Record summary:
Shown here is a 118-nucleotide RNA sequence from Phtheirospermum japonicum, a member of the family "Small nucleolar RNA snoR104". Rfam links the family to the GO terms nucleolus and RNA processing. Lineage of the source: Eukaryota > Viridiplantae > Euphyllophyta > Pentapetalae > Phtheirospermum. The family has 8 seed sequences and 612 matches in Rfam 15.1.

[Rfam]
RNA sequence: GGGGAGCAUCCGUAAGCUGAGAUGUUAUCUGAUACAAUCUUCCUAAAAUAAAACCUCAUAUGAUUAUUAUCUUGCAUUGCGUGAGUAAGCUCUGCAAGUUAAUAUAUGAGGUAUAUUA
Numbered sequence: 001g002g003g004g005a006g007c008a009u010c011c012g013u014a015a016g017c018u019g020a021g022a023u024g025u026u027a028u029c030u031g032a033u034a035c036a037a038u039c040u041u042c043c044u045a046a047a048a049u050a051a052a053a054c055c056u057c058a059u060a061u062g063a064u065u066a067u068u069a070u071c072u073u074g075c076a077u078u079g080c081g082u083g084a085g086u087a088a089g090c091u092c093u094g095c096a097a098g099u100u101a102a103u104a105u106a107u108g109a110g111g112u113a114u115a116u117u118a
Stems, first nucleotide, its partner, number of pairs: 001030003005026006055111002071098006079090002